RNA sequence: CGGCGGGACACCUCCCCCCAACGGGAGGCUAGCUAUCUGGAAGGAUAGAACAU
Number, nucleotide and partner (000 for none) at each position: 001c000002g000003g000004c000005g000006g000007g000008a000009c000010a000011c028012c027013u026014c025015c024016c023017c000018c000019c000020a000021a000022c000023g016024g015025g014026a013027g012028g011029c000030u000031a000032g000033c048034u047035a046036u045037c044038u043039g000040g000041a000042a000043g038044g037045a036046u035047a034048g033049a000050a000051c000052a000053u000

Shown here is a 53-nucleotide sequence from Rhodopseudomonas palustris, a member of the family "serC leader". The pairing is the family consensus, mapped onto this sequence. On this family, see Corbino et al., Genome Biol 2005: "Evidence for a second class of S-adenosylmethionine riboswitches and other regulatory RNA motifs in alpha-proteobacteria". NCBI's taxonomy places the organism under Bacteria, Pseudomonadota, Nitrobacteraceae, Rhodopseudomonas, Rhodopseudomonas palustris. This family is a putative regulatory RNA structure that is found upstream of the serC-serA operon in some alpha-proteobacteria. The final stem of the structure overlaps the ribosome binding site of the serC reading frame. Gene Ontology term of the family: regulation of gene expression.